[Rfam]
RNA sequence: UUAUAGGUCAUUUUAGCUAUUGAACUGUUUUGUUCCUCUCUGUCAAAGAAAAAUUAGUUCUGAGUUAGAGAUGGACCAAACAGUUCAAUAGCUAAAACGUCCUAUAAC
Numbered sequence: 001u002u003a004u005a006g007g008u009c010a011u012u013u014u015a016g017c018u019a020u021u022g023a024a025c026u027g028u029u030u031u032g033u034u035c036c037u038c039u040c041u042g043u044c045a046a047a048g049a050a051a052a053a054u055u056a057g058u059u060c061u062g063a064g065u066u067a068g069a070g071a072u073g074g075a076c077c078a079a080a081c082a083g084u085u086c087a088a089u090a091g092c093u094a095a096a097a098c099g100u101c102c103u104a105u106a107a108c
Stems, first nucleotide, its partner, number of pairs: 001107006011097018029069004034064001049059002
Dot-bracket structure: ((((((....((((((((((((((((((((((.(..............((.......))....).))))..........))))))))))))))))))....)))))).
Source information: This 108-nucleotide sequence from Plutella xylostella belongs to the Rfam family "mir-8517 microRNA precursor family".